[Rfam]
Nucleotides: 061
Stems, first nucleotide, its partner, number of pairs: 006017002028044003035055002
Number, partner (000 for none) and nucleotide at each position: 001000g002000a003000a004000a005000g006017g007016g008000a009000g010000c011000a012000g013000a014000a015000a016007c017006c018000a019000a020000u021000u022000a023000a024000a025000a026000c027000g028044g029043g030042c031000g032000a033000a034000a035055c036054c037000g038000a039000a040000a041000a042030g043029c044028c045000a046000u047000a048000c049000g050000a051000g052000u053000a054036g055035g056000a057000a058000a059000a060000u061000a
Shown here is a 61-nucleotide RNA sequence from Pedobacter sp. HMWF019, a member of the family "DUF805 RNA". The family's RNA type in Rfam is cis-regulatory element. Taxonomically the source falls in Pedobacter (Bacteria, Pseudomonadati, Sphingobacteriia, Sphingobacteriales). It scores 56 bits against the family's covariance model. Its Rfam clan is "DUF805 clan".